RNA: Iron response element I
RNA sequence: CGGUUUUCUGCUUCAGCAGUGCUUGAACGGAACCCG
Numbered sequence: 001c002g003g004u005u006u007u008c009u010g011c012u013u014c015a016g017c018a019g020u021g022c023u024u025g026a027a028c029g030g031a032a033c034c035c036g
Stems, first nucleotide, its partner, number of pairs: 001036003005032004010028001012027005017021001